[Rfam]
RNA sequence: CCAGUACGUUUGGUUUUAGAAUUCCUACGCUUUACCGUUGCCAAGCAGUGUUGGGCAAAGCGUUUGGAUUCUAAAACUAAGUUACU
Numbered sequence: 001c002c003a004g005u006a007c008g009u010u011u012g013g014u015u016u017u018a019g020a021a022u023u024c025c026u027a028c029g030c031u032u033u034a035c036c037g038u039u040g041c042c043a044a045g046c047a048g049u050g051u052u053g054g055g056c057a058a059a060g061c062g063u064u065u066g067g068a069u070u071c072u073a074a075a076a077c078u079a080a081g082u083u084a085c086u
Base pairs, nucleotide, nucleotide: 010080011079012078013077014076015075016074017073018072019071020070022068023067024066027063028062029061030060031059032058033057035055036054
RNA: mir-927 microRNA precursor family
Organism: Spodoptera litura